[Rfam]
RNA sequence: GAGUCAGUGAGAUAUGUUUGAUAUUCUUGGUUGUUGUUGAAUAUCAACCAAGAUACAAACAUACCAUCACAGAUCA
Numbered sequence: 001g002a003g004u005c006a007g008u009g010a011g012a013u014a015u016g017u018u019u020g021a022u023a024u025u026c027u028u029g030g031u032u033g034u035u036g037u038u039g040a041a042u043a044u045c046a047a048c049c050a051a052g053a054u055a056c057a058a059a060c061a062u063a064c065c066a067u068c069a070c071a072g073a074u075c076a
Stems, first nucleotide, its partner, number of pairs: 005072001007070003011065001013063008024052002029049005
RNA: mir-190 microRNA precursor family
Organism: Darwinula stevensoni